[Rfam]
RNA sequence: UGGCGCCUGGACAGGGACCUGGAAACGAGGGACUCUGUGAGGAAGAGGACGCCAAAGGAUGGUCGACCGCUAACAAAGACAAAAGGAAUUAAACCGAUCACCGCGGGAACCUGCCGCGUCAGGAUCGAAGGUAAGUGACGCGUCCGAAAUGGGACAAGAAUUAAGCCAACAUCAAAUAUAUGUAGGACAAUUAAAAGAGGCUUUAAAGAUACGAGGAGUAAAGGUUAAAGGUAAUGACUUGUUUAAAUUUUUUGAUUUUGUAAAAGAUACUUGCCCUU
Numbered sequence: 001u002g003g004c005g006c007c008u009g010g011a012c013a014g015g016g017a018c019c020u021g022g023a024a025a026c027g028a029g030g031g032a033c034u035c036u037g038u039g040a041g042g043a044a045g046a047g048g049a050c051g052c053c054a055a056a057g058g059a060u061g062g063u064c065g066a067c068c069g070c071u072a073a074c075a076a077a078g079a080c081a082a083a084a085g086g087a088a089u090u091a092a093a094c095c096g097a098u099c100a101c102c103g104c105g106g107g108a109a110c111c112u113g114c115c116g117c118g119u120c121a122g123g124a125u126c127g128a129a130g131g132u133a134a135g136u137g138a139c140g141c142g143u144c145c146g147a148a149a150u151g152g153g154a155c156a157a158g159a160a161u162u163a164a165g166c167c168a169a170c171a172u173c174a175a176a177u178a179u180a181u182g183u184a185g186g187a188c189a190a191u192u193a194a195a196a197g198a199g200g201c202u203u204u205a206a207a208g209a210u211a212c213g214a215g216g217a218g219u220a221a222a223g224g225u226u227a228a229a230g231g232u233a234a235u236g237a238c239u240u241g242u243u244u245a246a247a248u249u250u251u252u253u254g255a256u257u258u259u260g261u262a263a264a265a266g267a268u269a270c271u272u273g274c275c276c277u278u
Base pairs, nucleotide, nucleotide: 006030007029008028036048038046093132094131095130098124099122102118103117104116105115106114140155143153144152145151146150162205163204164203165201166200167199212254213253214252215251216250217249218248219247222240223239224238225237226236227235263278264277266275268273
A member of the RNA family "Mason-Pfizer monkey virus packaging signal" from Macaca mulatta, 278 nucleotides long. Lineage of the source: Eukaryota > Metazoa > Gnathostomata > Cercopithecidae > Macaca. A reference for the family is Mustafa et al. (2004), "Mutational analysis of the predicted secondary RNA structure of the Mason-Pfizer monkey virus packaging signal", Virus Res. Its family is annotated with viral genome packaging in the Gene Ontology. A search with the family's covariance model found it, with a score of 228 bits. Pairs were carried over by alignment from the consensus structure, which was predicted with PFOLD.